[Rfam]
RNA sequence: AAACAGCCCCCUACGUAUUGGAUCUUUGGCAGUUUUGGUCCCCAAGGCAAUUUUGACUUAGUCUUCGCUGACGUGACACCUACAAUGGUCGACACGUGGCACCUCACGUAAGGGAUGUGGGUGCCACGUCAGCAAAGACUAAGUUAAAAGUGGCUUUGGGGGCCAAAACUGCCAAAGAUUUAAUACAUAGGGAGCUAUUU
Numbered sequence: 001a002a003a004c005a006g007c008c009c010c011c012u013a014c015g016u017a018u019u020g021g022a023u024c025u026u027u028g029g030c031a032g033u034u035u036u037g038g039u040c041c042c043c044a045a046g047g048c049a050a051u052u053u054u055g056a057c058u059u060a061g062u063c064u065u066c067g068c069u070g071a072c073g074u075g076a077c078a079c080c081u082a083c084a085a086u087g088g089u090c091g092a093c094a095c096g097u098g099g100c101a102c103c104u105c106a107c108g109u110a111a112g113g114g115a116u117g118u119g120g121g122u123g124c125c126a127c128g129u130c131a132g133c134a135a136a137g138a139c140u141a142a143g144u145u146a147a148a149a150g151u152g153g154c155u156u157u158g159g160g161g162g163c164c165a166a167a168a169c170u171g172c173c174a175a176a177g178a179u180u181u182a183a184u185a186c187a188u189a190g191g192g193a194g195c196u197a198u199u200u
Stems, first nucleotide, its partner, number of pairs: 001200002005196003012189002015186031071129002074126002077123005
Dot-bracket structure: ((..(((....((.(((((((((((((((((((((((((((((((.........................((.((.(((((.....................................))))).)).))..........................))))))))))))))))))))))))))))))).))....)))..))